[Rfam]
Molybdenum/Tungsten riboswitch aptamer (Moco RNA motif): a 183-nucleotide sequence from a Thermoflexales bacterium. For this family Rfam cites "in molybdenum cofactor and tungsten cofactor metabolism" (Regulski et al., Mol Microbiol, 2008).
RNA sequence: AGAUCAAUCAGCCUCCGAGCCCGGUAACCUAACGAUGAGAUGAUCUACGGCUUAUGGGCCGGUCAUCAGCACCGAUGACCUCGGUCAAGGAUAGAAAUGUCCACGGCCUCCCGCCCUCACCCCGGCCCUCUCUCAAGAGGGCGAGAUGGAGGGAACUUGGAAAGGAGACGACCAUCACUCAGU
Numbered sequence: 001a002g003a004u005c006a007a008u009c010a011g012c013c014u015c016c017g018a019g020c021c022c023g024g025u026a027a028c029c030u031a032a033c034g035a036u037g038a039g040a041u042g043a044u045c046u047a048c049g050g051c052u053u054a055u056g057g058g059c060c061g062g063u064c065a066u067c068a069g070c071a072c073c074g075a076u077g078a079c080c081u082c083g084g085u086c087a088a089g090g091a092u093a094g095a096a097a098u099g100u101c102c103a104c105g106g107c108c109u110c111c112c113g114c115c116c117u118c119a120c121c122c123c124g125g126c127c128c129u130c131u132c133u134c135a136a137g138a139g140g141g142c143g144a145g146a147u148g149g150a151g152g153g154a155a156c157u158u159g160g161a162a163a164g165g166a167g168a169c170g171a172c173c174a175u176c177a178c179u180c181a182g183u
Stems, first nucleotide, its partner, number of pairs: 011169001013167004019059005026052001028050002034045003062079005083108004089102005110160002